[Rfam]
RNA sequence: GGGGGAUUGUUGGCCCUCCGGAGUCGCCCUGCGUGGGGGAGACUUCAAGCCGCCUCGUGCUGCGUUCGGCUGAAGGGUCGAGGGUGGUGAGCGACGAGGAAAAGGCGCACGGUAGUGUGUCAGGC
Numbered sequence: 001g002g003g004g005g006a007u008u009g010u011u012g013g014c015c016c017u018c019c020g021g022a023g024u025c026g027c028c029c030u031g032c033g034u035g036g037g038g039g040a041g042a043c044u045u046c047a048a049g050c051c052g053c054c055u056c057g058u059g060c061u062g063c064g065u066u067c068g069g070c071u072g073a074a075g076g077g078u079c080g081a082g083g084g085u086g087g088u089g090a091g092c093g094a095c096g097a098g099g100a101a102a103a104g105g106c107g108c109a110c111g112g113u114a115g116u117g118u119g120u121c122a123g124g125c
Stems, first nucleotide, its partner, number of pairs: 001019005020046006027039004051124001053099006059088002062085002065082001067080004104121006